Rfam assigns this 170-nucleotide sequence from Listeria grayi to the family "Manganese Mn2+ riboswitch aptamer (yybP-ykoY)".
The match comes from Rfam's covariance-model search (53 bits).
The source organism's lineage runs through Bacteria, Bacillati, Bacilli, Caryophanales and Listeria grayi.
This RNA was originally discovered in E. coli during a large scale screen and was named SraF. The family was later found to exist upstream of related families of protein genes in many bacteria, including the the yybP and ykoK genes in B. subtilis. The specific functions of these proteins are unknown, but this structured RNA element may be involved in their genetic regulation as a riboswitch.
Pairs were carried over by alignment from the consensus structure.
Its family is annotated with manganese ion binding in the Gene Ontology.

Nucleotides: 170
Base pairs, nucleotide, nucleotide: 027043028042046088047087048086049085050084051083052082053081054080055079063078064077065076066075067074093170094169095168
Number, partner (000 for none) and nucleotide at each position: 001000a002000c003000a004000u005000g006000u007000g008000u009000c010000a011000a012000a013000g014000g015000g016000g017000a018000g019000u020000a021000g022000c023000a024000u025000c026000a027043a028042a029000u030000c031000c032000a033000g034000g035000a036000c037000u038000g039000g040000a041000u042028u043027u044000g045000a046088g047087a048086u049085a050084a051083a052082g053081u054080c055079g056000u057000c058000a059000u060000u061000a062000c063078g064077u065076g066075g067074c068000a069000u070000c071000c072000g073000u074067g075066c076065c077064a078063u079055c080054g081053g082052u083051u084050u085049u086048a087047u088046c089000a090000a091000c092000a093170u094169u095168u096000a097000a098000a099000a100000u101000g102000u103000c104000a105000g106000c107000g108000a109000g110000a111000c112000c113000u114000u115000u116000g117000c118000c119000c120000u121000u122000a123000u124000u125000u126000a127000u128000a129000g130000g131000g132000u133000g134000g135000g136000u137000c138000u139000c140000g141000u142000u143000u144000u145000u146000u147000u148000a149000u150000u151000g152000u153000c154000a155000g156000a157000c158000c159000u160000a161000g162000c163000g164000c165000a166000a167000g168095g169094a170093a